[Rfam]
RNA: Molybdenum/Tungsten riboswitch aptamer (Moco RNA motif)
RNA sequence: GGCGCGGUACGUCCCUGAAUCCGGCCUUUCUAAAGCUUUCGCCAUGAGCGCCGGACGUCAGGGCGGCGAUGGAAACGUCGCCGUCUCCCGCUGCGGAAAGGGGACUUCACGCUUCUUGC
Numbered sequence: 001g002g003c004g005c006g007g008u009a010c011g012u013c014c015c016u017g018a019a020u021c022c023g024g025c026c027u028u029u030c031u032a033a034a035g036c037u038u039u040c041g042c043c044a045u046g047a048g049c050g051c052c053g054g055a056c057g058u059c060a061g062g063g064c065g066g067c068g069a070u071g072g073a074a075a076c077g078u079c080g081c082c083g084u085c086u087c088c089c090g091c092u093g094c095g096g097a098a099a100g101g102g103g104a105c106u107u108c109a110c111g112c113u114u115c116u117u118g119c
Stems, first nucleotide, its partner, number of pairs: 004112001006110001011105006020055006028048003035042002061086011087096002